A member of the RNA family "anti ponA RNA" from Pseudomonas sp. ATCC 13867, 295 nucleotides long. Taxonomically the source falls in Pseudomonas (Bacteria, Pseudomonadati, Gammaproteobacteria, Pseudomonadales). A reference for the family is Ferrara et al. (2012), "Comparative profiling of Pseudomonas aeruginosa strains reveals differential expression of novel unique and conserved small RNAs", PLoS One. Rfam's curators put it in the seed alignment. From the family's description: Transcribed antisense to the penicillin-binding protein 1A gene called ponA. It was identified by RNAseq and the expression was validated by 5' and 3' RACE experiments. AsponA expression was up or down regulated under different antibiotic stress. Due to its location it may be able to prevent the transcription or translation of the opposite gene. Study by Wurtzel et al. and Ferrara et al. also detected its expression. The base pairs follow the family's consensus structure, which was predicted with RNAfold. The family's RNA type in Rfam is antisense RNA.
[Rfam]
RNA sequence: GAAGUUGUCAUCCUCGGCCGAUAACAGUGCGUGGGUGAAGUCUUGGGGGAUUUCAGCAAAGCGAAUCGGCGUACGGCGCAUCUCGCCAAACUCUGCUAUCAAUCUGUUAUCACUGCUGUACACGCGCAACGGCAUCUGCAAACGCACGUUGCGCAAGGCCUCCACGGACGGGAGGUUUGGGCUGAGGUAGAGGUAGGCGCCGCUGAAACUGAGCAGCAAUCCACAGAUUAUGGUGACGCAGGUCCACCACAGAAACUUCAGCAGGCGCAUUGGAAGGUCUUGGAUUUCCAGAGAA
Numbered sequence: 001g002a003a004g005u006u007g008u009c010a011u012c013c014u015c016g017g018c019c020g021a022u023a024a025c026a027g028u029g030c031g032u033g034g035g036u037g038a039a040g041u042c043u044u045g046g047g048g049g050a051u052u053u054c055a056g057c058a059a060a061g062c063g064a065a066u067c068g069g070c071g072u073a074c075g076g077c078g079c080a081u082c083u084c085g086c087c088a089a090a091c092u093c094u095g096c097u098a099u100c101a102a103u104c105u106g107u108u109a110u111c112a113c114u115g116c117u118g119u120a121c122a123c124g125c126g127c128a129a130c131g132g133c134a135u136c137u138g139c140a141a142a143c144g145c146a147c148g149u150u151g152c153g154c155a156a157g158g159c160c161u162c163c164a165c166g167g168a169c170g171g172g173a174g175g176u177u178u179g180g181g182c183u184g185a186g187g188u189a190g191a192g193g194u195a196g197g198c199g200c201c202g203c204u205g206a207a208a209c210u211g212a213g214c215a216g217c218a219a220u221c222c223a224c225a226g227a228u229u230a231u232g233g234u235g236a237c238g239c240a241g242g243u244c245c246a247c248c249a250c251a252g253a254a255a256c257u258u259c260a261g262c263a264g265g266c267g268c269a270u271u272g273g274a275a276g277g278u279c280u281u282g283g284a285u286u287u288c289c290a291g292a293g294a295a
Stems, first nucleotide, its partner, number of pairs: 011171002014168002017165001020162002025045003029041002047084005054078001057075001061070002086095001103158002105155003108148001110146001117140004122135001125131002176291002179288003183284001186280002197268005202262006213239002217235002221232001243254001245252001
Dot-bracket structure: ..........((.((.(..((...(((.((.........)).))).(((((..(..(...((......))....)..).))))).(........).......((((((.(......((((.(..((...))...).)))).....).)....))).))..))..).)).))....((.(((.(..((.........(((((((((((.....((..((..(..........).))..))...(.(......).)..)))))).)))))..........))...).))).))....